[Rfam]
RNA sequence: AGCAAUAUAGGUGAUGGGGUUCACCUUUAACCGCCGAAGAAUGGCUAAUGACUCCUGCUGAGGA
Number, nucleotide and partner (000 for none) at each position: 001a000002g000003c000004a000005a000006u000007a000008u000009a000010g025011g024012u023013g022014a000015u000016g055017g054018g053019g052020u051021u050022c013023a012024c011025c010026u000027u000028u000029a000030a000031c000032c000033g045034c044035c043036g042037a000038a000039g000040a000041a000042u036043g035044g034045c033046u000047a000048a000049u000050g021051a020052c019053u018054c017055c016056u000057g000058c000059u000060g000061a000062g000063g000064a000
This 64-nucleotide RNA sequence from Exobacillus caeni belongs to the Rfam family "Fluoride riboswitch aptamer (crcB RNA motif)".
It scores 58 bits against the family's covariance model.
Rfam links the family to the GO terms response to fluoride and positive regulation of gene expression.
NCBI's taxonomy places the organism under Bacteria, Bacillati, Bacillota, Bacilli, Exobacillus.